The record is an 86-nucleotide sequence from Eubacterium sp. CAG:146, which matches "ZMP/ZTP riboswitch aptamer (pfl RNA motif)" in Rfam. Its family is annotated with regulation of purine nucleotide biosynthetic process and one-carbon metabolic process in the Gene Ontology. Pairs were carried over by alignment from the consensus structure, which is taken from published work.

RNA sequence: GGUUACUUAUACGACUGACGGAAGUAAGUGGAAUGAACCACAUGAAGUAUGAGAUUCUUAUUUAGCCGACCGUCUGGGCAAUUCUU
Numbered sequence: 001g002g003u004u005a006c007u008u009a010u011a012c013g014a015c016u017g018a019c020g021g022a023a024g025u026a027a028g029u030g031g032a033a034u035g036a037a038c039c040a041c042a043u044g045a046a047g048u049a050u051g052a053g054a055u056u057c058u059u060a061u062u063u064a065g066c067c068g069a070c071c072g073u074c075u076g077g078g079c080a081a082u083u084c085u086u
Stems, first nucleotide, its partner, number of pairs: 006053007015044001017074005028041004063081001065079003